[Rfam]
Shown here is a 99-nucleotide RNA from Corynebacterium yudongzhengii, a member of the family "TPP riboswitch aptamer (THI element)".

RNA sequence: GGCAUACACACGGGGUGCCCGGCAGAAGGCGGGGCUGAGAUCACACCCGAGGAACCUGCACUAGUUAGCACUAGCGAAGGGAUGUGAAAGCUUGACGCA
Numbered sequence: 001g002g003c004a005u006a007c008a009c010a011c012g013g014g015g016u017g018c019c020c021g022g023c024a025g026a027a028g029g030c031g032g033g034g035c036u037g038a039g040a041u042c043a044c045a046c047c048c049g050a051g052g053a054a055c056c057u058g059c060a061c062u063a064g065u066u067a068g069c070a071c072u073a074g075c076g077a078a079g080g081g082a083u084g085u086g087a088a089a090g091c092u093u094g095a096c097g098c099a
Base pairs, nucleotide, nucleotide: 007086008085009084010083011049012048013047014046016043017035018034019033020032055080056079057078061074062073063072064071

Source information:
Vitamin B(1) in its active form thiamin pyrophosphate (TPP) is an essential coenzyme that is synthesised by coupling of pyrimidine and thiazole moieties in bacteria. The previously detected thiamin-regulatory element, thi box was extended, resulting in a new, highly conserved RNA secondary structure, the THI element, which is widely distributed in eubacteria and also occurs in some archaea. Analysis of operon structures identified a large number of new candidate thiamin-regulated genes, mostly transporters, in various prokaryotic organisms. Taxonomically the source falls in Corynebacterium (Bacteria, Bacillati, Actinomycetota, Corynebacteriaceae). Its family is annotated with thiamine pyrophosphate binding in the Gene Ontology.